[Rfam]
Shown here is a 109-nucleotide sequence, a member of the family "EGFOA RNA". It is one of the family's seed sequences. The base pairs follow the family's consensus structure, which is taken from published work.
RNA sequence: AGCUUCUCAGAUUGUGUACCGUCCUAGUUGGCAGGCAGUUAGAACUCGUGAUUGAGUGGUUGGUAAAGCUAGACCUGAGCGACCUAACCUGUUGGUUUGAAUGACUGUG
Numbered sequence: 001a002g003c004u005u006c007u008c009a010g011a012u013u014g015u016g017u018a019c020c021g022u023c024c025u026a027g028u029u030g031g032c033a034g035g036c037a038g039u040u041a042g043a044a045c046u047c048g049u050g051a052u053u054g055a056g057u058g059g060u061u062g063g064u065a066a067a068g069c070u071a072g073a074c075c076u077g078a079g080c081g082a083c084c085u086a087a088c089c090u091g092u093u094g095g096u097u098u099g100a101a102u103g104a105c106u107g108u109g
Stems, first nucleotide, its partner, number of pairs: 006079005021074002024072004035108007044057004058084005